[Rfam]
Source information
The record is an 84-nucleotide sequence from Horornis vulcanius, which matches "Small nucleolar RNA SNORD71" in Rfam. From the family's description: snoRNA HBII-239 belongs to the family of C/D snoRNAs.It is the human orthologue of the mouse MBII-239 described and is predicted to guide 2'O-ribose methylation of 5.8S rRNA on residue U14. Rfam links the family to the GO terms nucleolus and RNA processing. For this family Rfam cites "RNomics: an experimental approach that identifies 201 candidates for novel, small, non-messenger RNAs in mouse" (Huttenhofer et al., EMBO J, 2001). The family's RNA type in Rfam is H/ACA-box small nucleolar RNA. The match comes from Rfam's covariance-model search (60 bits).
RNA sequence: UGCUGUUGGAGGAUGAAGCCUUUGAGUGAUCCAUCAGCAGAGCACAAUGUUGCCAUGCUGACACUCGUGCUGCUGCAUUGGGCC
Dot-bracket structure: .((((.(((.((((.(..........).)))).(((((...(((......)))...)))))...........))..).)).)).